This 75-nucleotide RNA from Leptidea sinapis belongs to the Rfam family "mir-970 microRNA precursor family". Its family is annotated with miRNA-mediated post-transcriptional gene silencing and RISC complex in the Gene Ontology. It scores 62 bits against the family's covariance model. Rfam 15.1 lists 75 matches to the family in 74 species. Lineage of the source: Eukaryota > Protostomia > Lepidoptera > Ditrysia > Leptidea.
RNA sequence: CCGAGUGAGCCCGGCGUGUGAUCUUAUCGGUAGUGUGUGUGUUAAUCUAUCAUAAGACACACGCGGCUCUCCCUG
Numbered sequence: 001c002c003g004a005g006u007g008a009g010c011c012c013g014g015c016g017u018g019u020g021a022u023c024u025u026a027u028c029g030g031u032a033g034u035g036u037g038u039g040u041g042u043u044a045a046u047c048u049a050u051c052a053u054a055a056g057a058c059a060c061a062c063g064c065g066g067c068u069c070u071c072c073c074u075g
Base pairs, nucleotide, nucleotide: 001075003073005071008068009067010066011065014064015063016062019059020058022057023056024055029051030050031049032048